[Rfam]
RNA sequence: AACAAUAGUUAUGUAUCUUUAUGGAUGUGUAAUGAUUCUUGUGGAUAUGAUUGCUUGAACUCACGAACAUCUAAGGGACUGAGUUGCA
Dot-bracket structure: ..((((............................................................................))))..
Numbered sequence: 001a002a003c004a005a006u007a008g009u010u011a012u013g014u015a016u017c018u019u020u021a022u023g024g025a026u027g028u029g030u031a032a033u034g035a036u037u038c039u040u041g042u043g044g045a046u047a048u049g050a051u052u053g054c055u056u057g058a059a060c061u062c063a064c065g066a067a068c069a070u071c072u073a074a075g076g077g078a079c080u081g082a083g084u085u086g087c088a
Stems, first nucleotide, its partner, number of pairs: 003086004